[Rfam]
RNA sequence: GGCCCCUUGGCGGAAUCGGCAUACGCAGGAGACUUAAAAUCUUCGGACCGCAAGGUCGUCCCGGUUCGAGUCCGGGAGGGGCUA
Numbered sequence: 001g002g003c004c005c006c007u008u009g010g011c012g013g014a015a016u017c018g019g020c021a022u023a024c025g026c027a028g029g030a031g032a033c034u035u036a037a038a039a040u041c042u043u044c045g046g047a048c049c050g051c052a053a054g055g056u057c058g059u060c061c062c063g064g065u066u067c068g069a070g071u072c073c074g075g076g077a078g079g080g081g082c083u084a
Stems, first nucleotide, its partner, number of pairs: 001083007010026003028044005060076005
Dot-bracket structure: (((((((..(((...........))).(((((.......)))))...............(((((.......)))))))))))).
RNA: tRNA
Organism: Myxococcales bacterium